[Rfam]
RNA sequence: ACAGAUGAUGCACUAUCCGAAGGCUUAGCCAGGGUAUGUGUUGAUGU
Numbered sequence: 001a002c003a004g005a006u007g008a009u010g011c012a013c014u015a016u017c018c019g020a021a022g023g024c025u026u027a028g029c030c031a032g033g034g035u036a037u038g039u040g041u042u043g044a045u046g047u
Stems, first nucleotide, its partner, number of pairs: 001047003010041004016034003022030003
Record summary:
A member of the RNA family "flpD RNA" from Methanococcus aeolicus, 47 nucleotides long. The family's RNA type in Rfam is cis-regulatory element.